[Rfam]
RNA sequence: GUGCAUCCAGUAGGAAUUGAACUUACGAAUUCGCCAAUUGUGAGUUGAGUGUUUUAACCAUUCAGUCAUGGAUGC
Numbered sequence: 001g002u003g004c005a006u007c008c009a010g011u012a013g014g015a016a017u018u019g020a021a022c023u024u025a026c027g028a029a030u031u032c033g034c035c036a037a038u039u040g041u042g043a044g045u046u047g048a049g050u051g052u053u054u055u056a057a058c059c060a061u062u063c064a065g066u067c068a069u070g071g072a073u074g075c
Stems, first nucleotide, its partner, number of pairs: 003075006010026005040069003044066008
RNA: Plastid-ycf2 5UTR RNA